[Rfam]
RNA sequence: ACCUACAAGCAGAAGCCAUCCGCUUCUCACCACGCGACGCCCUGAGCUGUCAGCAUGGUCAGGUUAAAAGGAAUUUAUUUUCUUUUGUCCUUAUGCGGGUGGAUUGCACCCGCUUUUUAUUUUUUCG
Numbered sequence: 001a002c003c004u005a006c007a008a009g010c011a012g013a014a015g016c017c018a019u020c021c022g023c024u025u026c027u028c029a030c031c032a033c034g035c036g037a038c039g040c041c042c043u044g045a046g047c048u049g050u051c052a053g054c055a056u057g058g059u060c061a062g063g064u065u066a067a068a069a070g071g072a073a074u075u076u077a078u079u080u081u082c083u084u085u086u087g088u089c090c091u092u093a094u095g096c097g098g099g100u101g102g103a104u105u106g107c108a109c110c111c112g113c114u115u116u117u118u119a120u121u122u123u124u125u126c127g
Stems, first nucleotide, its partner, number of pairs: 011027006029059003036051003039047002095113007
Dot-bracket structure: ..........((((((.....)))))).(((....(((((.....)).))).....)))...................................(((((((.....)))))))..............
The record is a 127-nucleotide sequence from Desulfocucumis palustris, which matches "Ribosomal protein L20 leader" in Rfam. NCBI's taxonomy places the organism under Bacteria, Bacillati, Bacillota, Desulfocucumaceae, Desulfocucumis. By type it is a cis-regulatory leader. The family's consensus secondary structure was predicted with CMfinder. The match comes from Rfam's covariance-model search (61 bits). Rfam describes the family as follows. This family is a putative r-protein leader autoregulatory structure found in B. subtilis and other low-GC Gram-positive bacteria. It is located in the 5' untranslated regions of mRNAs encoding initiation factor 3 followed by ribosomal proteins L35 and L20 (infC-rpmI-rplT).